Background:
MIR390 microRNA precursor family: a 109-nucleotide sequence from Tripterygium wilfordii. It scores 91 bits against the family's covariance model. For this family Rfam cites "ASRP: the Arabidopsis Small RNA Project Database" (Gustafson et al., Nucleic Acids Res, 2005). Rfam links the family to the GO terms RISC complex and miRNA-mediated post-transcriptional gene silencing.

[Rfam]
RNA sequence: UGGAAGAAUCUGGUUAAGCUCAGGAGGGAUAGCGCCAUGAGCCUCACGUUUGUUCGAGUUGUUAUACGGGUUGUGGUGCUAUCCAUCCUGAGUUUCAUCGCUUCUUCUU
Dot-bracket structure: .........(......(((((((((.((((((((((......................................)))))))))).))))))))).....).........
Numbered sequence: 001u002g003g004a005a006g007a008a009u010c011u012g013g014u015u016a017a018g019c020u021c022a023g024g025a026g027g028g029a030u031a032g033c034g035c036c037a038u039g040a041g042c043c044u045c046a047c048g049u050u051u052g053u054u055c056g057a058g059u060u061g062u063u064a065u066a067c068g069g070g071u072u073g074u075g076g077u078g079c080u081a082u083c084c085a086u087c088c089u090g091a092g093u094u095u096c097a098u099c100g101c102u103u104c105u106u107c108u109u
Stems, first nucleotide, its partner, number of pairs: 010100001017094009027084010